[Rfam]
RNA sequence: AUGAUGAUUACGGGAGAGCGCCAUGAGGCCACCGAAGGAGCAAGUUGGGCCAAGAGCCAUUUGACCCAAUGAAUCUCUCAGGUUCCAUGACCGUAAUCGGACC
Numbered sequence: 001a002u003g004a005u006g007a008u009u010a011c012g013g014g015a016g017a018g019c020g021c022c023a024u025g026a027g028g029c030c031a032c033c034g035a036a037g038g039a040g041c042a043a044g045u046u047g048g049g050c051c052a053a054g055a056g057c058c059a060u061u062u063g064a065c066c067c068a069a070u071g072a073a074u075c076u077c078u079c080a081g082g083u084u085c086c087a088u089g090a091c092c093g094u095a096a097u098c099g100g101a102c103c
Base pairs, nucleotide, nucleotide: 006098007097008096009095010094011093012092013091020029021028022027031083032082033081034079035078038077039076040075044070045069046068047067048066049065
Record summary: The family of this 103-nucleotide RNA sequence from Hydrogenispora ethanolica is "Glycine riboswitch aptamer". Gene Ontology term of the family: glycine biosynthetic process. It scores 64 bits against the family's covariance model. NCBI's taxonomy places the organism under Bacteria, Bacillati, Bacillota, Hydrogenispora.